A member of the RNA family "Small nucleolar RNA SNORA5" from Myotis davidii, 123 nucleotides long. About the family: ACA5 is a member of the H/ACA class of snoRNA that guide the sites of modification of uridines to pseudouridines. Rfam links the family to the GO terms RNA processing and nucleolus. The family has 6 seed sequences and 2,226 matches in Rfam 15.1. Taxonomically the source falls in Myotis (Eukaryota, Deuterostomia, Teleostomi, Amniota).
[Rfam]
RNA sequence: UGCAGCUUAUGUCUGCUCACUGCUGGUAAGUGGACAUACCCUGAGGGCUGCCAGAGGAUGUCUGACUGCCAGCUUGGGCCUGAUCCCCCCAGGGAGUGGGCCUAAGCCAGCAGGUGGACAUCC
Number, nucleotide and partner (000 for none) at each position: 001u000002g051003c050004a049005g048006c000007u000008u000009a037010u036011g035012u034013c033014u032015g031016c030017u029018c000019a027020c000021u000022g000023c000024u000025g000026g000027u019028a000029a017030g016031u015032g014033g013034a012035c011036a010037u009038a000039c000040c000041c000042u000043g000044a000045g000046g000047g000048c005049u004050g003051c002052c000053a000054g000055a000056g000057g000058a000059u000060g000061u000062c000063u000064g115065a000066c113067u112068g111069c110070c000071a000072g000073c000074u000075u000076g000077g000078g101079c100080c099081u098082g097083a000084u000085c000086c000087c000088c000089c000090c000091a000092g000093g000094g000095a000096g000097u082098g081099g080100g079101c078102c000103u000104a000105a000106g000107c000108c000109a000110g069111c068112a067113g066114g000115u064116g000117g000118a000119c000120a000121u000122c000123c000